[Rfam]
Record summary:
A member of the RNA family "let-7 microRNA precursor family" from Cynoglossus semilaevis, 82 nucleotides long. This family represents the microRNAs (miRNA) let-7 and mir-98. let-7 was identified from a study of developmental timing in C. elegans, and was later shown to be part of a much larger class of non-coding RNAs termed miRNAs. Rfam links the family to the GO terms RISC complex and miRNA-mediated post-transcriptional gene silencing. The family is grouped with related families in Rfam's "let-7 microRNA precursor clan". NCBI's taxonomy places the organism under Eukaryota, Eumetazoa, Bilateria, Craniata, Cynoglossus. For this family Rfam cites "Control of developmental timing in animals" (Rougvie, Nat Rev Genet, 2001). Pairs were carried over by alignment from the consensus structure, which was predicted with RNAalifold. A search with the family's covariance model found it, with a score of 68 bits.
RNA sequence: CAAGGAUGAGGUAGUAGAUUGAAUAGUUGUGGGGUUCACGUCCUCCCUCUGAGAUAACUAUGCAAUCUACUGUCUUUCCUAA
Numbered sequence: 001c002a003a004g005g006a007u008g009a010g011g012u013a014g015u016a017g018a019u020u021g022a023a024u025a026g027u028u029g030u031g032g033g034g035u036u037c038a039c040g041u042c043c044u045c046c047c048u049c050u051g052a053g054a055u056a057a058c059u060a061u062g063c064a065a066u067c068u069a070c071u072g073u074c075u076u077u078c079c080u081a082a
Base pairs, nucleotide, nucleotide: 003080004079005078006077008076009075010074011073012072013071014070015069016068017067018066019065020064021063023061024060025059026058027057032044033043034042046053
Dot-bracket structure: ..((((.((((((((((((((.(((((....(((.......))).(......)...))))).))))))))))))))))))..